RNA sequence: CCGCUAUCCGCAACUCGGUCUAGCCGUAACCCGGAAGGUAUACCUGCAUCUCAAAGGGUGAAACACCCGCAACGGUGAAGCG
Number, nucleotide and partner (000 for none) at each position: 001c000002c082003g081004c080005u000006a000007u035008c034009c033010g032011c000012a000013a000014c000015u000016c026017g025018g024019u023020c000021u000022a000023g019024c018025c017026g016027u000028a000029a000030c000031c000032c010033g009034g008035a007036a000037g044038g043039u000040a000041u000042a000043c038044c037045u000046g000047c077048a076049u075050c074051u000052c000053a000054a000055a000056g068057g067058g066059u065060g064061a000062a000063a000064c060065a059066c058067c057068c056069g000070c000071a000072a000073c000074g050075g049076u048077g047078a000079a000080g004081c003082g002
This 82-nucleotide sequence from Advenella mimigardefordensis belongs to the Rfam family "SucA RNA motif". A reference for the family is Weinberg et al. (2007), "Identification of 22 candidate structured RNAs in bacteria using the CMfinder comparative genomics pipeline", Nucleic Acids Res. It scores 41 bits against the family's covariance model. The family's RNA type in Rfam is cis-regulatory element. The base pairs follow the family's consensus structure, which is taken from published work.